[Rfam]
RNA: Small nucleolar SNORD12/SNORD106
RNA sequence: CCAGGUGUACAUGAUGACUAAACUUUUUUCCCCAUCAGAGCGACAGUGUUGAUUUUUCUCUGUUAGCCAGAUUCAGUCUGAUACACCAGC
Numbered sequence: 001c002c003a004g005g006u007g008u009a010c011a012u013g014a015u016g017a018c019u020a021a022a023c024u025u026u027u028u029u030c031c032c033c034a035u036c037a038g039a040g041c042g043a044c045a046g047u048g049u050u051g052a053u054u055u056u057u058c059u060c061u062g063u064u065a066g067c068c069a070g071a072u073u074c075a076g077u078c079u080g081a082u083a084c085a086c087c088a089g090c
Base pairs, nucleotide, nucleotide: 002089004087005086006085007084008083009082